[Rfam]
RNA: RNase MRP
Organism: Corynespora cassiicola
RNA sequence: UCCUCGUUCAAAGAAUCGCGCACGAAGCUCACUCACAGAGUGCCUCCCUGCUUGCACAGGCAGCUCUCACUUGCUUUGGGAGAAAGUCCCCGGACUCCGGUUCUCACCAACCGCACUUUCAGCAACGAUCCGCCAUAGAAGCGCGGCCUCCAUCGCUCCAUCAGAACAUCACCUUUCUGCUUCUUUUCCCGCCUGCACUCAUUACUGUCUCUUUUUCGACGCCCACGGAUGGAUGGCUGGCACCUGGACGAUGAUAUGAGUCCGCUGGUUCUGAAGUUGGUGUGGCUGAGAUGAAGAGACAGCAGUGAGGAGGGGCUAGGGGCAAGAGGGUGGUAUAGUGAUGGAGGGUUCUUUCGUCCAGUUUGUGGUUAUGCGAUUGCCUUCCACAUGUCCAGUGAUAUGGGUGUGCUGAGGAAGGUAACUCAAUGGGGCUUAUUCUUGACGCGAGG
Numbered sequence: 001u002c003c004u005c006g007u008u009c010a011a012a013g014a015a016u017c018g019c020g021c022a023c024g025a026a027g028c029u030c031a032c033u034c035a036c037a038g039a040g041u042g043c044c045u046c047c048c049u050g051c052u053u054g055c056a057c058a059g060g061c062a063g064c065u066c067u068c069a070c071u072u073g074c075u076u077u078g079g080g081a082g083a084a085a086g087u088c089c090c091c092g093g094a095c096u097c098c099g100g101u102u103c104u105c106a107c108c109a110a111c112c113g114c115a116c117u118u119u120c121a122g123c124a125a126c127g128a129u130c131c132g133c134c135a136u137a138g139a140a141g142c143g144c145g146g147c148c149u150c151c152a153u154c155g156c157u158c159c160a161u162c163a164g165a166a167c168a169u170c171a172c173c174u175u176u177c178u179g180c181u182u183c184u185u186u187u188c189c190c191g192c193c194u195g196c197a198c199u200c201a202u203u204a205c206u207g208u209c210u211c212u213u214u215u216u217c218g219a220c221g222c223c224c225a226c227g228g229a230u231g232g233a234u235g236g237c238u239g240g241c242a243c244c245u246g247g248a249c250g251a252u253g254a255u256a257u258g259a260g261u262c263c264g265c266u267g268g269u270u271c272u273g274a275a276g277u278u279g280g281u282g283u284g285g286c287u288g289a290g291a292u293g294a295a296g297a298g299a300c301a302g303c304a305g306u307g308a309g310g311a312g313g314g315g316c317u318a319g320g321g322g323c324a325a326g327a328g329g330g331u332g333g334u335a336u337a338g339u340g341a342u343g344g345a346g347g348g349u350u351c352u353u354u355c356g357u358c359c360a361g362u363u364u365g366u367g368g369u370u371a372u373g374c375g376a377u378u379g380c381c382u383u384c385c386a387c388a389u390g391u392c393c394a395g396u397g398a399u400a401u402g403g404g405u406g407u408g409c410u411g412a413g414g415a416a417g418g419u420a421a422c423u424c425a426a427u428g429g430g431g432c433u434u435a436u437u438c439u440u441g442a443c444g445c446g447a448g449g
Stems, first nucleotide, its partner, number of pairs: 002449006008442004014378006023078006038068003042064002084434003088431004141351001143349001147347010157333002316326002319323001380418006